[Rfam]
RNA sequence: GACAGAGUAGAUAUUUGCGCGUUAAGUGUUAAGAGGACGGGAAGUUGCCUUUUAAACGAAAAACUUUUGUUUGCGGUGUAAAUAUUGCAUUCCGCUGUU
Numbered sequence: 001g002a003c004a005g006a007g008u009a010g011a012u013a014u015u016u017g018c019g020c021g022u023u024a025a026g027u028g029u030u031a032a033g034a035g036g037a038c039g040g041g042a043a044g045u046u047g048c049c050u051u052u053u054a055a056a057c058g059a060a061a062a063a064c065u066u067u068u069g070u071u072u073g074c075g076g077u078g079u080a081a082a083u084a085u086u087g088c089a090u091u092c093c094g095c096u097g098u099u
Stems, first nucleotide, its partner, number of pairs: 001099005010086010020075003026057002029055008040092003044088001061072004
Dot-bracket structure: (((((....(((((((((((((...((.((((((((...[[[.[...))))))))))...((((....))))))).)))))))))).].]]]..)))))